[Rfam]
RNA: MIR5565 microRNA precursor family
Organism: Sorghum bicolor
RNA sequence: GUUGUCGGAUUCACAUCAAUCCACAUGUGUUGGAGUGGAUUGGGGACCCCAAUCCACUCCAACAUAUGUGGAUUGAUGCGAAACCGACU
Numbered sequence: 001g002u003u004g005u006c007g008g009a010u011u012c013a014c015a016u017c018a019a020u021c022c023a024c025a026u027g028u029g030u031u032g033g034a035g036u037g038g039a040u041u042g043g044g045g046a047c048c049c050c051a052a053u054c055c056a057c058u059c060c061a062a063c064a065u066a067u068g069u070g071g072a073u074u075g076a077u078g079c080g081a082a083a084c085c086g087a088c089u
Stems, first nucleotide, its partner, number of pairs: 004088005010082003014078001016076017035057009